Small nucleolar RNA Z105: a 72-nucleotide RNA sequence from Cynara cardunculus.
By type it is a C/D-box small nucleolar RNA.
Rfam 15.1 lists 621 matches to the family in 204 species.
NCBI's taxonomy places the organism under Eukaryota, Spermatophyta, campanulids, Asterales, Cynara cardunculus subsp. cardunculus.
[Rfam]
RNA sequence: CGAGCAUAGUGAUGAUUGUUUAAUUGUCCGAUUAAUUCAUGAAUGGAAUAGCAAACCUCCUACUCAUUCUGA
Numbered sequence: 001c002g003a004g005c006a007u008a009g010u011g012a013u014g015a016u017u018g019u020u021u022a023a024u025u026g027u028c029c030g031a032u033u034a035a036u037u038c039a040u041g042a043a044u045g046g047a048a049u050a051g052c053a054a055a056c057c058u059c060c061u062a063c064u065c066a067u068u069c070u071g072a
Stems, first nucleotide, its partner, number of pairs: 006067002009064001027047002029041001